[Rfam]
RNA: Metazoan signal recognition particle RNA
RNA sequence: GCCGGGAUGAGUCGCGCCGUCCUGUAAUCCAUGCUUUCGGAGGCUGGGUGGUGUGGACGUCGGGUCUCUUGUGAGAGCCUAAGUAUGCACGUAGAGAGCUCGUCCGCCUCGAGCUGAGAUCCAUCUGCGUGGUCCCACCGGAAGGAGGGGGUGUGCAGAUGUUAGAGAGUGGGGGAACGCGUGAGGCGGGAAACCGAGCAGCGAAGACCCUCCAAUCCCGGUAGCGAGGGGAUAGCGAGCUUGAGUGUCUUAUUCAGAUCACUCUCCCAAGUCCGACACGGGGUACCAUCACCUUU
Numbered sequence: 001g002c003c004g005g006g007a008u009g010a011g012u013c014g015c016g017c018c019g020u021c022c023u024g025u026a027a028u029c030c031a032u033g034c035u036u037u038c039g040g041a042g043g044c045u046g047g048g049u050g051g052u053g054u055g056g057a058c059g060u061c062g063g064g065u066c067u068c069u070u071g072u073g074a075g076a077g078c079c080u081a082a083g084u085a086u087g088c089a090c091g092u093a094g095a096g097a098g099c100u101c102g103u104c105c106g107c108c109u110c111g112a113g114c115u116g117a118g119a120u121c122c123a124u125c126u127g128c129g130u131g132g133u134c135c136c137a138c139c140g141g142a143a144g145g146a147g148g149g150g151g152u153g154u155g156c157a158g159a160u161g162u163u164a165g166a167g168a169g170u171g172g173g174g175g176a177a178c179g180c181g182u183g184a185g186g187c188g189g190g191a192a193a194c195c196g197a198g199c200a201g202c203g204a205a206g207a208c209c210c211u212c213c214a215a216u217c218c219c220g221g222u223a224g225c226g227a228g229g230g231g232a233u234a235g236c237g238a239g240c241u242u243g244a245g246u247g248u249c250u251u252a253u254u255c256a257g258a259u260c261a262c263u264c265u266c267c268c269a270a271g272u273c274c275g276a277c278a279c280g281g282g283g284u285a286c287c288a289u290c291a292c293c294u295u296u
Base pairs, nucleotide, nucleotide: 001044002043003042004023005022006021007020008019009018028041029040030039046294047293048292049291050290051289052288053287057284058283059277060276061275062274063273064272069270070269071268073266074265075264076263082254083253087248088247089246090245092243096242097241098240099239100238101237102236103235104231105230107229108228109227110226111225113222114221115220116219118217119216120215122161123160124159125158126157127156128155129154130153131152133150134149135148136147138145139144162166169212171210172209173208180203181202182201187196188195189194